Rfam assigns this 90-nucleotide sequence from Rheinheimera sp. F8 to the family "c-di-GMP-I riboswitch aptamer". The base pairs follow the family's consensus structure, which is taken from published work. The organism belongs to Rheinheimera, within Bacteria. The family has 155 seed sequences and 5,092 matches in Rfam 15.1. It scores 57 bits against the family's covariance model.
RNA sequence: CGCAUCGAAAGGCAAGACAGUUGAAAGACUGCUCACGCAAUGCUUCGGGUCUAAGGGUAAUCAGUUACCUAUGAUAGCCGGGCUGCCAUC
Numbered sequence: 001c002g003c004a005u006c007g008a009a010a011g012g013c014a015a016g017a018c019a020g021u022u023g024a025a026a027g028a029c030u031g032c033u034c035a036c037g038c039a040a041u042g043c044u045u046c047g048g049g050u051c052u053a054a055g056g057g058u059a060a061u062c063a064g065u066u067a068c069c070u071a072u073g074a075u076a077g078c079c080g081g082g083c084u085g086c087c088a089u090c
Stems, first nucleotide, its partner, number of pairs: 012038002017033001018031005042083003046080003049075003056069004
Dot-bracket structure: ...........((...((((((....))))).)...))...(((.((((((....((((......))))...)))..)))))).......